Rfam assigns this 122-nucleotide RNA sequence from Sphaerotilus montanus to the family "Burkholderia RNA 11". Co-purified with Hfq, expression confirmed by Northern blot. Predicted target marZ. Overlaps coding sequence. By type it is a small RNA.
[Rfam]
RNA sequence: GCAACCUCAAGCUCGCGCACGGCAACCUCGUCGUCUUCCGCUCGCUGCUGGGCAUCUCGUGGAUGUGGUUCUUCGGCGCGGUCUUCCUGAGCCAGUUCCCCGCCUUCGCCAAGGAGGUGCUG
Numbered sequence: 001g002c003a004a005c006c007u008c009a010a011g012c013u014c015g016c017g018c019a020c021g022g023c024a025a026c027c028u029c030g031u032c033g034u035c036u037u038c039c040g041c042u043c044g045c046u047g048c049u050g051g052g053c054a055u056c057u058c059g060u061g062g063a064u065g066u067g068g069u070u071c072u073u074c075g076g077c078g079c080g081g082u083c084u085u086c087c088u089g090a091g092c093c094a095g096u097u098c099c100c101c102g103c104c105u106u107c108g109c110c111a112a113g114g115a116g117g118u119g120c121u122g
Stems, first nucleotide, its partner, number of pairs: 010049003014044002017041002021038002025034002051121005057115002060112001062110001063105001065103001067099002071095002077089002080087002